A member of the RNA family "MIR8565 microRNA precursor family" from Amborella trichopoda, 154 nucleotides long. It scores 138 bits against the family's covariance model. The family's consensus secondary structure was predicted with RNAalifold.
[Rfam]
RNA sequence: CCCACACCCAUGUGUAUAGGACCCCAAAGGCUCACCAUUAAAUUUGGCACAAAUAUUUAGAAAAAUUAUUAUAUGGGUGUGGGACUUGAAUUUUCUAGAGAUCUGUGCCAAAUUUAAUGGUGAUCUUAUGGGGGCCUAUACACAUGGGUGUGGG
Numbered sequence: 001c002c003c004a005c006a007c008c009c010a011u012g013u014g015u016a017u018a019g020g021a022c023c024c025c026a027a028a029g030g031c032u033c034a035c036c037a038u039u040a041a042a043u044u045u046g047g048c049a050c051a052a053a054u055a056u057u058u059a060g061a062a063a064a065a066u067u068a069u070u071a072u073a074u075g076g077g078u079g080u081g082g083g084a085c086u087u088g089a090a091u092u093u094u095c096u097a098g099a100g101a102u103c104u105g106u107g108c109c110a111a112a113u114u115u116a117a118u119g120g121u122g123a124u125c126u127u128a129u130g131g132g133g134g135c136c137u138a139u140a141c142a143c144a145u146g147g148g149u150g151u152g153g154g
Base pairs, nucleotide, nucleotide: 002153003152004151005150006149007148008147009146010145011144012143013142015140016139017138018137019136020135022133023132024131025130026129028127030125032123034121035120036119037118038117039116040115041114042113043112044111045110046109047108048107049106050105051104053102054101056099057098058097059096060095061094062093063092064091066089067088068087069082070081071080072079073078